[Rfam]
RNA sequence: CUCUUAUCAAGAGAGGUGGAGGGAAAAGGGCCCUAUGAAACCCGGCAACCAGUGAUAUUCACUAAGGUGCCAAUUCCUGCAGUGCUAUCUGCAAGAUAAGAG
Numbered sequence: 001c002u003c004u005u006a007u008c009a010a011g012a013g014a015g016g017u018g019g020a021g022g023g024a025a026a027a028g029g030g031c032c033c034u035a036u037g038a039a040a041c042c043c044g045g046c047a048a049c050c051a052g053u054g055a056u057a058u059u060c061a062c063u064a065a066g067g068u069g070c071c072a073a074u075u076c077c078u079g080c081a082g083u084g085c086u087a088u089c090u091g092c093a094a095g096a097u098a099a100g101a102g
Stems, first nucleotide, its partner, number of pairs: 001102008013043001015042003021033003028078003044071004049067002051063004075094001080091003